[Rfam]
RNA sequence: AUAAAUUGACGAGCAGGAAAGGCACCCUGCGCUCCCAUUCGGGAACCUGAUAUGAUGGAUACGCCGCCCAUCCAAUUAU
Numbered sequence: 001a002u003a004a005a006u007u008g009a010c011g012a013g014c015a016g017g018a019a020a021g022g023c024a025c026c027c028u029g030c031g032c033u034c035c036c037a038u039u040c041g042g043g044a045a046c047c048u049g050a051u052a053u054g055a056u057g058g059a060u061a062c063g064c065c066g067c068c069c070a071u072c073c074a075a076u077u078a079u
Base pairs, nucleotide, nucleotide: 001079002078003077004076006074008073013030014029015028016027017026021065022064023063032049033044034043035042036041054072055071056070057069058068
Shown here is a 79-nucleotide RNA, a member of the family "skipping-rope RNA". By type it is a small RNA. Pairs were carried over by alignment from the consensus structure, which is taken from published work.